Shown here is a 35-nucleotide RNA sequence from Chitinophaga sp. MD30, a member of the family "DUF805b RNA".
Taxonomically the source falls in Chitinophaga (Bacteria, Pseudomonadati, Chitinophagia, Chitinophagaceae).

RNA sequence: ACAGGGGCUACCGAAAACCUGAGAAAGAGUAGGUA
Numbered sequence: 001a002c003a004g005g006g007g008c009u010a011c012c013g014a015a016a017a018c019c020u021g022a023g024a025a026a027g028a029g030u031a032g033g034u035a
Base pairs, nucleotide, nucleotide: 002021003020004019005018010034011033012032